Annotation
This 74-nucleotide sequence from Actinoplanes campanulatus belongs to the Rfam family "tRNA". Pairs were carried over by alignment from the consensus structure, which is taken from published work. Clan: tRNA clan.

RNA sequence: GCUGGUGUAGCUCAGUCGGUCAGAGCAUCGAGCCGAUAACUCGAAGGCCGGCGGUUCGAUUCCGCCCACCAGCA
Numbered sequence: 001g002c003u004g005g006u007g008u009a010g011c012u013c014a015g016u017c018g019g020u021c022a023g024a025g026c027a028u029c030g031a032g033c034c035g036a037u038a039a040c041u042c043g044a045a046g047g048c049c050g051g052c053g054g055u056u057c058g059a060u061u062c063c064g065c066c067c068a069c070c071a072g073c074a
Stems, first nucleotide, its partner, number of pairs: 001073007010026004028044005050066005
Dot-bracket structure: (((((((..((((.........)))).(((((.......))))).....(((((.......)))))))))))).
The family's RNA type in Rfam is transfer RNA.